[Rfam]
Group II catalytic intron D1-D4-7: a 139-nucleotide RNA from Vibrio thalassae. A reference for the family is Lehmann and Schmidt (2003), "Group II introns: structure and catalytic versatility of large natural ribozymes", Crit Rev Biochem Mol Biol. From the family's description: Group II introns are found in rRNA, tRNA and mRNA of organelles in fungi, plants and protists, and also in mRNA in bacteria.
RNA sequence: CCAUCUGUAUCACCAGAUGACCCUAGGAUCCUGAAUAAAGUAGCGGAUCUGACAAUGUAACGAAACUUGGCCGUUAGGCUGAGUGGGAACAAAAUCGUGAGAGGAUGUUCCUCCUGAAAACCACAAUUCGGGUAAGUGC
Number, nucleotide and partner (000 for none) at each position: 001c000002c019003a018004u017005c016006u015007g014008u000009a000010u000011c000012a000013c000014c007015a006016g005017a004018u003019g002020a000021c000022c000023c000024u000025a000026g000027g049028a048029u047030c046031c045032u040033g000034a000035a000036u000037a000038a000039a000040g032041u000042a000043g000044c000045g031046g030047a029048u028049c027050u000051g000052a000053c000054a000055a000056u000057g000058u000059a000060a000061c000062g000063a000064a000065a084066c083067u082068u081069g080070g079071c078072c077073g000074u000075u000076a000077g072078g071079c070080u069081g068082a067083g066084u065085g000086g111087g110088a109089a108090c000091a000092a000093a000094a000095u102096c101097g000098u000099g000100a000101g096102a095103g000104g000105a000106u000107g000108u089109u088110c087111c086112u000113c132114c131115u130116g129117a128118a127119a000120a000121c000122c000123a000124c000125a000126a000127u118128u117129c116130g115131g114132g113133u000134a000135a000136g000137u000138g000139c000